[Rfam]
The family of this 214-nucleotide sequence from Butyrivibrio sp. CB08 is "T-box leader". Its family is annotated with tRNA binding in the Gene Ontology. Lineage of the source: Bacteria > Clostridia > Lachnospirales > Lachnospiraceae > Butyrivibrio. Rfam classes the family as a cis-regulatory leader. The family has 48 seed sequences and 19,395 matches in Rfam 15.1. It scores 112 bits against the family's covariance model. From the family's description: Uncharged tRNA acts as the effector for transcription antitermination of genes in the T-box leader family. T-boxes are found upstream of many aminoacyl-tRNA synthetase genes and some amino acid biosynthetic genes usually in Gram-positive bacteria.
RNA sequence: AGAAAAGCGUUGACGGAAAGAGUAGUUUGUGAUGAAUCAUCCAGAGAGAGUGACACUUGGUGGAAGUCAUUUAUGAGGAUAACAGACGAAAACCAUUCCUGAGCUGCAAUGCUGAACAACAGUAAGCGUUGCCGUAUGCCUGCGUCAAAGGAUAGGAUUUGUUAGAAUCUGAAGUAAAAAGUUAAGGUGGAACCGUGCAUAAUGCACCCUUAAG
Numbered sequence: 001a002g003a004a005a006a007g008c009g010u011u012g013a014c015g016g017a018a019a020g021a022g023u024a025g026u027u028u029g030u031g032a033u034g035a036a037u038c039a040u041c042c043a044g045a046g047a048g049a050g051u052g053a054c055a056c057u058u059g060g061u062g063g064a065a066g067u068c069a070u071u072u073a074u075g076a077g078g079a080u081a082a083c084a085g086a087c088g089a090a091a092a093c094c095a096u097u098c099c100u101g102a103g104c105u106g107c108a109a110u111g112c113u114g115a116a117c118a119a120c121a122g123u124a125a126g127c128g129u130u131g132c133c134g135u136a137u138g139c140c141u142g143c144g145u146c147a148a149a150g151g152a153u154a155g156g157a158u159u160u161g162u163u164a165g166a167a168u169c170u171g172a173a174g175u176a177a178a179a180a181g182u183u184a185a186g187g188u189g190g191a192a193c194c195g196u197g198c199a200u201a202a203u204g205c206a207c208c209c210u211u212a213a214g
Base pairs, nucleotide, nucleotide: 007104008103015099016098017097018096025087026086027085028084029083030082037076038075039074049071050070051069052068053067054066107131108130109129110128111127112126113125133144134143135142159177160176161175162174163173184211185210186209187208195207196206197205198204199203